About this RNA
This 57-nucleotide RNA sequence from Cynara cardunculus belongs to the Rfam family "Plastid-ccsA-ndhD-1 3UTR RNA". It is annotated as a cis-regulatory element. The family has 488 seed sequences and 1,322 matches in Rfam 15.1. On this family, see Stern and Gruissem, Cell 1987: "Control of plastid gene expression: 3' inverted repeats act as mRNA processing and stabilizing elements, but do not terminate transcription".
[Rfam]
RNA sequence: CAACCGGCGAGAACCAUGUGAAUCAAGAAGUGUAGUGUUUCACGCGGUUCUCGCGAA
Number, nucleotide and partner (000 for none) at each position: 001c000002a000003a000004c000005c000006g000007g054008c053009g052010a051011g050012a049013a048014c047015c046016a000017u044018g043019u042020g041021a040022a039023u000024c037025a036026a000027g000028a000029a000030g000031u000032g000033u000034a000035g000036u025037g024038u000039u022040u021041c020042a019043c018044g017045c000046g015047g014048u013049u012050c011051u010052c009053g008054c007055g000056a000057a000